[Rfam]
Overview:
Shown here is a 76-nucleotide RNA, a member of the family "HTH-XRE RNA".
RNA sequence: GAUCAGCAAAGUCGGGGAAUGUGCAGACAUUCAUCGGAACUCCCGGCAAAAGGCUUGCAAAGGUGAUUUCCCUUUC
Dot-bracket structure: ..........((((((((((((....)))))).........)))))).............................
Numbered sequence: 001g002a003u004c005a006g007c008a009a010a011g012u013c014g015g016g017g018a019a020u021g022u023g024c025a026g027a028c029a030u031u032c033a034u035c036g037g038a039a040c041u042c043c044c045g046g047c048a049a050a051a052g053g054c055u056u057g058c059a060a061a062g063g064u065g066a067u068u069u070c071c072c073u074u075u076c
Stems, first nucleotide, its partner, number of pairs: 011047006017032006
The base pairs follow the family's consensus structure, which is taken from published work.